[Rfam]
RNA sequence: GAGCCUGUGAUGAAUAUAUAACCGUGCUGGAGGCGUCACUUUUUGUGAUCGUCGAUGAUGGCGCAAUUAACCUCUAAGAAGUUCUGAGCUC
Numbered sequence: 001g002a003g004c005c006u007g008u009g010a011u012g013a014a015u016a017u018a019u020a021a022c023c024g025u026g027c028u029g030g031a032g033g034c035g036u037c038a039c040u041u042u043u044u045g046u047g048a049u050c051g052u053c054g055a056u057g058a059u060g061g062c063g064c065a066a067u068u069a070a071c072c073u074c075u076a077a078g079a080a081g082u083u084c085u086g087a088g089c090u091c
Stems, first nucleotide, its partner, number of pairs: 001091004
RNA: Small nucleolar RNA U61